[Rfam]
RNA sequence: CGGUGAGGCUUCCUAACCGUUAUCAACGGAAGCACUCGAUCAUACUGUGGGUGGCUUAUAUCUGCACACCUUAGACGCUCGUCGUCAGGAGUAUGGUGUGAGGGCGGGUUAGAUGCCCG
Dot-bracket structure: [[[[...((((((..]]]]........)))))).((((((((((((..(((((((........)).)))))..((((.....))))...)))))))).))))..(((((.....)))))
Shown here is a 119-nucleotide RNA sequence from Peribacillus asahii, a member of the family "epsC RNA". A search with the family's covariance model found it, with a score of 110 bits. Lineage of the source: Bacteria > Bacillati > Bacilli > Caryophanales > Peribacillus. Rfam 15.1 lists 450 matches to the family in 334 species. The base pairs follow the family's consensus structure, which is taken from published work.